[Rfam]
RNA sequence: AAAAGUCACCAGGGGAGCUGGAAAAGCUGGCUGAGAUAUAGAUCUGAUGAAAUCUAUGACCCUUUAACCUGAUCUGGAUAAUGCCAGCGUAGGGAUGUUGCAUGAUUUUUGU
Numbered sequence: 001a002a003a004a005g006u007c008a009c010c011a012g013g014g015g016a017g018c019u020g021g022a023a024a025a026g027c028u029g030g031c032u033g034a035g036a037u038a039u040a041g042a043u044c045u046g047a048u049g050a051a052a053u054c055u056a057u058g059a060c061c062c063u064u065u066a067a068c069c070u071g072a073u074c075u076g077g078a079u080a081a082u083g084c085c086a087g088c089g090u091a092g093g094g095a096u097g098u099u100g101c102a103u104g105a106u107u108u109u110u111g112u
Stems, first nucleotide, its partner, number of pairs: 006100001008098002011063004017031005038057005068093004074087004
A member of the RNA family "TPP riboswitch aptamer (THI element)" from Propionispira arboris, 112 nucleotides long. The match comes from Rfam's covariance-model search (73 bits). The organism belongs to Propionispira, within Bacteria.